[Rfam]
Rfam assigns this 161-nucleotide sequence from Lachancea waltii to the family "Small nucleolar RNA snR161".
RNA sequence: ACAUACCAAACAAGCCAGUAUCAUUGGCUGUCUGCGUAUCCCCAACUCACAGACGGUCUCUCUAAGCUGGUAGAUCGAAAACCUAAAUACGAACAACUUAAGUUCUGUCGUAGUGGCUCCUAAUAUCCAAGCCCUAUGACACUAUUGUGGUUCAAACAGCU
Numbered sequence: 001a002c003a004u005a006c007c008a009a010a011c012a013a014g015c016c017a018g019u020a021u022c023a024u025u026g027g028c029u030g031u032c033u034g035c036g037u038a039u040c041c042c043c044a045a046c047u048c049a050c051a052g053a054c055g056g057u058c059u060c061u062c063u064a065a066g067c068u069g070g071u072a073g074a075u076c077g078a079a080a081a082c083c084u085a086a087a088u089a090c091g092a093a094c095a096a097c098u099u100a101a102g103u104u105c106u107g108u109c110g111u112a113g114u115g116g117c118u119c120c121u122a123a124u125a126u127c128c129a130a131g132c133c134c135u136a137u138g139a140c141a142c143u144a145u146u147g148u149g150g151u152u153c154a155a156a157c158a159g160c161u
Stems, first nucleotide, its partner, number of pairs: 015070005027057008036048001091153004096148002107140007115133003121129001

On this family, see Schattner et al., Nucleic Acids Res 2004: "Genome-wide searching for pseudouridylation guide snoRNAs: analysis of the Saccharomyces cerevisiae genome". It is one of the family's seed sequences. Pairs were carried over by alignment from the consensus structure, which was predicted with WAR. The organism belongs to Lachancea, within Eukaryota. By type it is an H/ACA-box small nucleolar RNA. Its Rfam clan is "SNORA44 clan".